[Rfam]
RNA sequence: GGCAGAGGACGACCUCCCCCUGACGGGCUGACACUUCCGGGACGGCCCGG
Numbered sequence: 001g002g003c004a005g006a007g008g009a010c011g012a013c014c015u016c017c018c019c020c021u022g023a024c025g026g027g028c029u030g031a032c033a034c035u036u037c038c039g040g041g042a043c044g045g046c047c048c049g050g
Stems, first nucleotide, its partner, number of pairs: 001020002005016004037050005
Dot-bracket structure: ((..((((....))))..))................(((((....)))))